[Rfam]
RNA sequence: CGGGAGAAGGGUUGUUAAGGAACUCGGCAAAUUGACCCCGUAACUUCGGGAGAAGGGGUGCUCCAGAGAUGGAGCCGCAGAGAAUCGGCCCAAGCAACUGUUUACCAAAAACACAGGUUUGUGCUAAAUCGAAAGAUGACGUAUACGAGCUGACGCCUGCCCGGUGCUGGAAGGUUAAGAGGAGAUGUGCAAGCAUUGAAUCGAAGCCCCAGUGAACGGCGGCCGUAACUAUAACGGUCCUAAGGUAGCGAAAUUCCUUGUCAGGUAAGUUCUGACCCGCAUGAAAGGCGUAAUGAUUUGGGCACUGUCUCGACAGCCCGCCCG
Numbered sequence: 001c002g003g004g005a006g007a008a009g010g011g012u013u014g015u016u017a018a019g020g021a022a023c024u025c026g027g028c029a030a031a032u033u034g035a036c037c038c039c040g041u042a043a044c045u046u047c048g049g050g051a052g053a054a055g056g057g058g059u060g061c062u063c064c065a066g067a068g069a070u071g072g073a074g075c076c077g078c079a080g081a082g083a084a085u086c087g088g089c090c091c092a093a094g095c096a097a098c099u100g101u102u103u104a105c106c107a108a109a110a111a112c113a114c115a116g117g118u119u120u121g122u123g124c125u126a127a128a129u130c131g132a133a134a135g136a137u138g139a140c141g142u143a144u145a146c147g148a149g150c151u152g153a154c155g156c157c158u159g160c161c162c163g164g165u166g167c168u169g170g171a172a173g174g175u176u177a178a179g180a181g182g183a184g185a186u187g188u189g190c191a192a193g194c195a196u197u198g199a200a201u202c203g204a205a206g207c208c209c210c211a212g213u214g215a216a217c218g219g220c221g222g223c224c225g226u227a228a229c230u231a232u233a234a235c236g237g238u239c240c241u242a243a244g245g246u247a248g249c250g251a252a253a254u255u256c257c258u259u260g261u262c263a264g265g266u267a268a269g270u271u272c273u274g275a276c277c278c279g280c281a282u283g284a285a286a287g288g289c290g291u292a293a294u295g296a297u298u299u300g301g302g303c304a305c306u307g308u309c310u311c312g313a314c315a316g317c318c319c320g321c322c323c324g
Stems, first nucleotide, its partner, number of pairs: 001324004009319008018310003035059005044049001060075006076080001088303007095295002099113003116151008124141001128137003154290004159220003164217002166213005173208003179202002184197005221239006240244001250277001260276006

Record summary
The family of this 324-nucleotide part of an RNA from Faecalibacterium prausnitzii is "Bacterial large subunit ribosomal RNA". Rfam links the family to the GO terms ribosome and structural constituent of ribosome.